Small nucleolar RNA SNORD17: a 247-nucleotide sequence from Corythaixoides concolor. The snoRNA HBI-43 belongs to the C/D family of snoRNAs, guiding 2'O-ribose methylation at position U3797 of the 28S rRNA. Pseudouridylation in position U3797 is predicted to be guided by the H/ACA snoRNA ACA48. A reference for the family is Huttenhofer et al. (2001), "RNomics: an experimental approach that identifies 201 candidates for novel, small, non-messenger RNAs in mouse", EMBO J. The source organism's lineage runs through Eukaryota, Archosauria, Aves, Neoaves and Corythaixoides.
RNA sequence: GUGAGGUGAUGACAAAGCUUAUCCAUUCUCUGAGUGCGAUGGUGCUGCCCUCCUGCAGCACCCCAAUUCCUGUUCUAGGGUCUGGGUGCUGUGCAGCCUUCAGAUACCCUCCAGUCUCCCAGUGUCCUACUUGGGGCUGCUGUGGUAUGUGACUGGCUGCCUGCAGGAGUGAAGUGGUGCUGGCAGGGUUGGAGCCCCUCUUUGGGGGGCUCCAUCCUCAUUGAGAUGAGGGACAGUGUCUGAUCAC
Numbered sequence: 001g002u003g004a005g006g007u008g009a010u011g012a013c014a015a016a017g018c019u020u021a022u023c024c025a026u027u028c029u030c031u032g033a034g035u036g037c038g039a040u041g042g043u044g045c046u047g048c049c050c051u052c053c054u055g056c057a058g059c060a061c062c063c064c065a066a067u068u069c070c071u072g073u074u075c076u077a078g079g080g081u082c083u084g085g086g087u088g089c090u091g092u093g094c095a096g097c098c099u100u101c102a103g104a105u106a107c108c109c110u111c112c113a114g115u116c117u118c119c120c121a122g123u124g125u126c127c128u129a130c131u132u133g134g135g136g137c138u139g140c141u142g143u144g145g146u147a148u149g150u151g152a153c154u155g156g157c158u159g160c161c162u163g164c165a166g167g168a169g170u171g172a173a174g175u176g177g178u179g180c181u182g183g184c185a186g187g188g189u190u191g192g193a194g195c196c197c198c199u200c201u202u203u204g205g206g207g208g209g210c211u212c213c214a215u216c217c218u219c220a221u222u223g224a225g226a227u228g229a230g231g232g233a234c235a236g237u238g239u240c241u242g243a244u245c246a247c
Base pairs, nucleotide, nucleotide: 010246011245012244017239018238020236023232024231026230027229028228030225031224034221035220038184040182041181043179044178045177046176047175048174050171051168052167053166054165055164056163057162059088060087061086062085063084068080069079070078071077093160094159095158096157097156098155106146107145112139113138114137115136116135118134119133121131122130123129124128186219187218188216190214191213192212193211195209196208197207198206